[Rfam]
RNA sequence: AUGCCCCUGCGUGAGGGAUUGAAGUGAAAAUCCUUUUUUGAGGCUUUUCGCCGAUGAAAAAGAUUGUAACGGAAAGCCCGACCCGAG
Numbered sequence: 001a002u003g004c005c006c007c008u009g010c011g012u013g014a015g016g017g018a019u020u021g022a023a024g025u026g027a028a029a030a031u032c033c034u035u036u037u038u039u040g041a042g043g044c045u046u047u048u049c050g051c052c053g054a055u056g057a058a059a060a061a062g063a064u065u066g067u068a069a070c071g072g073a074a075a076g077c078c079c080g081a082c083c084c085g086a087g
Stems, first nucleotide, its partner, number of pairs: 015079003019075002024070002029065004034060002037058003042052003
Flavo-1 RNA: an 87-nucleotide sequence from Flavobacterium psychrophilum. The family's RNA type in Rfam is small RNA. Rfam's curators put it in the seed alignment. The organism belongs to Flavobacterium psychrophilum, within Bacteria.